[Rfam]
RNA: UnaL2 LINE 3' element
RNA sequence: UAAUGCACUUGUUGUACGUUGCUCUGGAUAAGAGCGUCUGCUAAAUGACUGUAA
Numbered sequence: 001u002a003a004u005g006c007a008c009u010u011g012u013u014g015u016a017c018g019u020u021g022c023u024c025u026g027g028a029u030a031a032g033a034g035c036g037u038c039u040g041c042u043a044a045a046u047g048a049c050u051g052u053a054a
Base pairs, nucleotide, nucleotide: 013043014041015040016039020036021035022034023033024032025031
Dot-bracket structure: ............((((...((((((.....))))))..))).)...........